[Rfam]
Rfam assigns this 530-nucleotide part of an RNA from Brugia malayi to the family "Eukaryotic large subunit ribosomal RNA". The sequence is in the family's curated seed alignment.

RNA sequence: CCCUCUGAAGUUUCCCUCAGGAUAGCUGGAGUACGUUAAAUAAAGCAGUUAUAUUCGGUAAAGCGAAUGAUUAGAGGAAUUGUGGGACGAAACGUCUUCAACCUAUUCUCAAACUUUCAAUGAGUAUGACGUCUUGCUUGCUUAAAUUUUUUAUGAAGCAUAGACAUUGAAUGUGUGCUCCAAGUGGGCCAUUUUUGGUAAGCAGAACUGGCGCUGUGGGAUGAACCAAACGUUGAGUUAAAGUGCCAAACUUUCCGCUCAUGAGACCCCAUGAAAGGCGUUGGUUGAUAUAGACAGCAGGACGGUGGCCAUGGAAGUUGGAAACCGCUAAGGAGUGUGUAACAACUCACCUGCCAAAUCAACUAGCCCUGAAAAUGGAUGGCGCUUGAGCGGGAGACUUAUACUCAACCGUUGUAUGGCUUGUGUUUUUUUUUUUUUGGGAAAUCUGGCCGCAACGAGUAAGAGGGUCGCAAUGGUUAGCGUUGAAGACUUUGGGCGUAGGCCCGGUUGAAGCUUCCAUUGGUGCAGAU
Numbered sequence: 001c002c003c004u005c006u007g008a009a010g011u012u013u014c015c016c017u018c019a020g021g022a023u024a025g026c027u028g029g030a031g032u033a034c035g036u037u038a039a040a041u042a043a044a045g046c047a048g049u050u051a052u053a054u055u056c057g058g059u060a061a062a063g064c065g066a067a068u069g070a071u072u073a074g075a076g077g078a079a080u081u082g083u084g085g086g087a088c089g090a091a092a093c094g095u096c097u098u099c100a101a102c103c104u105a106u107u108c109u110c111a112a113a114c115u116u117u118c119a120a121u122g123a124g125u126a127u128g129a130c131g132u133c134u135u136g137c138u139u140g141c142u143u144a145a146a147u148u149u150u151u152u153a154u155g156a157a158g159c160a161u162a163g164a165c166a167u168u169g170a171a172u173g174u175g176u177g178c179u180c181c182a183a184g185u186g187g188g189c190c191a192u193u194u195u196u197g198g199u200a201a202g203c204a205g206a207a208c209u210g211g212c213g214c215u216g217u218g219g220g221a222u223g224a225a226c227c228a229a230a231c232g233u234u235g236a237g238u239u240a241a242a243g244u245g246c247c248a249a250a251c252u253u254u255c256c257g258c259u260c261a262u263g264a265g266a267c268c269c270c271a272u273g274a275a276a277g278g279c280g281u282u283g284g285u286u287g288a289u290a291u292a293g294a295c296a297g298c299a300g301g302a303c304g305g306u307g308g309c310c311a312u313g314g315a316a317g318u319u320g321g322a323a324a325c326c327g328c329u330a331a332g333g334a335g336u337g338u339g340u341a342a343c344a345a346c347u348c349a350c351c352u353g354c355c356a357a358a359u360c361a362a363c364u365a366g367c368c369c370u371g372a373a374a375a376u377g378g379a380u381g382g383c384g385c386u387u388g389a390g391c392g393g394g395a396g397a398c399u400u401a402u403a404c405u406c407a408a409c410c411g412u413u414g415u416a417u418g419g420c421u422u423g424u425g426u427u428u429u430u431u432u433u434u435u436u437u438u439g440g441g442a443a444a445u446c447u448g449g450c451c452g453c454a455a456c457g458a459g460u461a462a463g464a465g466g467g468u469c470g471c472a473a474u475g476g477u478u479a480g481c482g483u484u485g486a487a488g489a490c491u492u493u494g495g496g497c498g499u500a501g502g503c504c505c506g507g508u509u510g511a512a513g514c515u516u517c518c519a520u521u522g523g524u525g526c527a528g529a530u
Stems, first nucleotide, its partner, number of pairs: 001467006011024001013022003027182007049129008061117001062115002068111003073106001075104003080101003084097002088094001131165004135160005188212004193207005217228003232409005238403001242399003251396001253395001256392003276370003280367010297354005303327003309321002328332001333348001337346002410457006418451003469525001471522006480514002488509002495504003
Dot-bracket structure: ((((((....(.(((....))).)..(((((((...............((((((((....(((....(((..(.(((..(((.((..(.....).)).)))))).)..)))..)).)....)))))))).(((((((((................))))).))))..........))))))).....((((.(((((.....))))).))))....(((......)))...(((((.(...(((......(.(..(((.................(((.((((((((((.......(((((.(((...((.........))...)))(...)(...((......)).).)))))...)))))))))))))...................)))..)))))...).)))))((((((..(((............................)))))))))....)))))).(.((((((...((......((.....(((....)))...))...))..))))))..).....